Source information
The family of this 73-nucleotide sequence from Angomonas deanei is "Trypanosomatid snoRNA TB10Cs1H1". A search with the family's covariance model found it, with a score of 66 bits. The source organism's lineage runs through Eukaryota, Discoba, Metakinetoplastina, Trypanosomatida and Angomonas. A reference for the family is Liang et al. (2005), "A genome-wide analysis of C/D and H/ACA-like small nucleolar RNAs in Trypanosoma brucei reveals a trypanosome-specific pattern of rRNA modification", RNA. Rfam 15.1 lists 73 matches to the family in 16 species. Pairs were carried over by alignment from the consensus structure, which was predicted with WAR.

RNA sequence: CAACCCUUGUUAAUAGCAAACGGUCUCCUAAAGUCAUUUCCGCAAACCGCUUGUCUACACCGGGGGUGAGAAC
Numbered sequence: 001c002a003a004c005c006c007u008u009g010u011u012a013a014u015a016g017c018a019a020a021c022g023g024u025c026u027c028c029u030a031a032a033g034u035c036a037u038u039u040c041c042g043c044a045a046a047c048c049g050c051u052u053g054u055c056u057a058c059a060c061c062g063g064g065g066g067u068g069a070g071a072a073c
Stems, first nucleotide, its partner, number of pairs: 003067006016054004021049004